Rfam assigns this 81-nucleotide sequence from bacterium HR32 to the family "c-di-GMP-I riboswitch aptamer".
[Rfam]
RNA sequence: CGUUCGAAAGGGCAAACCCGCGGUAACGCGGGGACGCAAAGCCGACGGGACCUGCAGCAGCAGGUCGGCCGGGUUGCCGAA
Number, nucleotide and partner (000 for none) at each position: 001c000002g000003u000004u000005c000006g000007a000008a000009a000010g000011g000012g037013c036014a000015a000016a000017c032018c031019c030020g029021c028022g027023g000024u000025a000026a000027c022028g021029c020030g019031g018032g017033g000034a000035c000036g013037c012038a000039a000040a075041g074042c073043c072044g000045a000046c071047g070048g069049g066050a065051c064052c063053u062054g061055c060056a000057g000058c000059a000060g055061c054062a053063g052064g051065u050066c049067g000068g000069c048070c047071g046072g043073g042074u041075u040076g000077c000078c000079g000080a000081a000